The family of this 37-nucleotide RNA from Bacteroidales bacterium Barb7 is "abiF RNA". A search with the family's covariance model found it, with a score of 54 bits. The family's RNA type in Rfam is small RNA. Pairs were carried over by alignment from the consensus structure, which is taken from published work.
[Rfam]
RNA sequence: CCUGCCAAGCCUCUUAAUAAAGCUCAAAUAGGCAGGU
Dot-bracket structure: ((((((.(((...........)))......)))))).